[Rfam]
RNA sequence: CCCCCAAGGGGAAGCGAAGACCCUAUGGAGCUUUACUGCAGGCUGUCGCUGAGACGUGGCCGCUAGUGUGCAGGAUAGGUAGGAGCCGUGACGCAGGCACCCGCGCUAGCGGGCCGCCGAGGCAACACUGAAAUACUACCCACUAGUGGCUGCGACUCUCACUCCUGGCGGAGGACACCGGUAGCCGGGCAGUUUGACUGGGGCGGUACGCGCUCGAAAAGAUAUCGAGCGCGCCCUAAGACCAUCUCAUCCGGGUCGGAGAUCCGGAGAAGAGCGCAAGAGCAUAAGAUGGUUUGACAGUGUUCUUCCCAACGAGGAACGCUGACGUGAAAGCGUGGUCUAGCGAACUCAUUAGCCCGCCCGAUGCGGGCAAUGAAUGACAGAAAAGCUACCCUAGGGAUAACAGAGUCGUCACUCGCAAGAGCACAUAUCGACCGAGUGGCUUGCUACCUCGAUGUCGGUUCCCUCCAUCCUGCCCGUGCAGAAGCGGGCAAGGGUGAGGUUGUUCGCCUAUUAAAGGAGGUCGUGAGCUGGGUUUAGACCGUCGUGAGACAGGUCGGCUGCUAUCUAUUGGGGGUGUCA
Numbered sequence: 001c002c003c004c005c006a007a008g009g010g011g012a013a014g015c016g017a018a019g020a021c022c023c024u025a026u027g028g029a030g031c032u033u034u035a036c037u038g039c040a041g042g043c044u045g046u047c048g049c050u051g052a053g054a055c056g057u058g059g060c061c062g063c064u065a066g067u068g069u070g071c072a073g074g075a076u077a078g079g080u081a082g083g084a085g086c087c088g089u090g091a092c093g094c095a096g097g098c099a100c101c102c103g104c105g106c107u108a109g110c111g112g113g114c115c116g117c118c119g120a121g122g123c124a125a126c127a128c129u130g131a132a133a134u135a136c137u138a139c140c141c142a143c144u145a146g147u148g149g150c151u152g153c154g155a156c157u158c159u160c161a162c163u164c165c166u167g168g169c170g171g172a173g174g175a176c177a178c179c180g181g182u183a184g185c186c187g188g189g190c191a192g193u194u195u196g197a198c199u200g201g202g203g204c205g206g207u208a209c210g211c212g213c214u215c216g217a218a219a220a221g222a223u224a225u226c227g228a229g230c231g232c233g234c235c236c237u238a239a240g241a242c243c244a245u246c247u248c249a250u251c252c253g254g255g256u257c258g259g260a261g262a263u264c265c266g267g268a269g270a271a272g273a274g275c276g277c278a279a280g281a282g283c284a285u286a287a288g289a290u291g292g293u294u295u296g297a298c299a300g301u302g303u304u305c306u307u308c309c310c311a312a313c314g315a316g317g318a319a320c321g322c323u324g325a326c327g328u329g330a331a332a333g334c335g336u337g338g339u340c341u342a343g344c345g346a347a348c349u350c351a352u353u354a355g356c357c358c359g360c361c362c363g364a365u366g367c368g369g370g371c372a373a374u375g376a377a378u379g380a381c382a383g384a385a386a387a388g389c390u391a392c393c394c395u396a397g398g399g400a401u402a403a404c405a406g407a408g409u410c411g412u413c414a415c416u417c418g419c420a421a422g423a424g425c426a427c428a429u430a431u432c433g434a435c436c437g438a439g440u441g442g443c444u445u446g447c448u449a450c451c452u453c454g455a456u457g458u459c460g461g462u463u464c465c466c467u468c469c470a471u472c473c474u475g476c477c478c479g480u481g482c483a484g485a486a487g488c489g490g491g492c493a494a495g496g497g498u499g500a501g502g503u504u505g506u507u508c509g510c511c512u513a514u515u516a517a518a519g520g521a522g523g524u525c526g527u528g529a530g531c532u533g534g535g536u537u538u539a540g541a542c543c544g545u546c547g548u549g550a551g552a553c554a555g556g557u558c559g560g561c562u563g564c565u566a567u568c569u570a571u572u573g574g575g576g577g578u579g580u581c582a
Stems, first nucleotide, its partner, number of pairs: 001577007010569003014564002022398004027394002029390005035193004042185007051158003055154014078140005085123003100113005162173004196209001197207003210232006235338002241293006247273002250268006274283002298324009326335001328333001349376005355371005407448003411445001412442007422432002459534001460532004464526001465523005472497002476491005500512004540558004544553003
RNA: Archaeal large subunit ribosomal RNA, nucleotides 2080 to 2661